[Rfam]
RNA sequence: UUACGAUAAAGGCAAACCUUGAGUAAUCAGGGGACGCAAAGGAAAGGGUCUUGUAAUAGUGGACAGUGUCAGUAUAAGUAAUAGACGCUUACACUCACAACUGACACGAUUAAAAUAAGAUAGCCUUACUGCCGAA
Numbered sequence: 001u002u003a004c005g006a007u008a009a010a011g012g013c014a015a016a017c018c019u020u021g022a023g024u025a026a027u028c029a030g031g032g033g034a035c036g037c038a039a040a041g042g043a044a045a046g047g048g049u050c051u052u053g054u055a056a057u058a059g060u061g062g063a064c065a066g067u068g069u070c071a072g073u074a075u076a077a078g079u080a081a082u083a084g085a086c087g088c089u090u091a092c093a094c095u096c097a098c099a100a101c102u103g104a105c106a107c108g109a110u111u112a113a114a115a116u117a118a119g120a121u122a123g124c125c126u127u128a129c130u131g132c133c134g135a136a
Stems, first nucleotide, its partner, number of pairs: 012037002017032006040130002043127001045126003048121003051115001
RNA: c-di-GMP-I riboswitch aptamer
Organism: Candidatus Jettenia caeni